[Rfam]
RNA sequence: GUCUUCGAGGAGCGUUGCGACGGGCUCGGCCCGCCAGGCUCGAAGGCUUUCAAUCGGAAGGAUUGGAUGCGCGCCGCGCUUACAAACCAACCGCAUCGAACGGCGCUCACGUCAA
Numbered sequence: 001g002u003c004u005u006c007g008a009g010g011a012g013c014g015u016u017g018c019g020a021c022g023g024g025c026u027c028g029g030c031c032c033g034c035c036a037g038g039c040u041c042g043a044a045g046g047c048u049u050u051c052a053a054u055c056g057g058a059a060g061g062a063u064u065g066g067a068u069g070c071g072c073g074c075c076g077c078g079c080u081u082a083c084a085a086a087c088c089a090a091c092c093g094c095a096u097c098g099a100a101c102g103g104c105g106c107u108c109a110c111g112u113c114a115a
Base pairs, nucleotide, nucleotide: 002046003045004044005043006042007041008040021033022032023031024030025029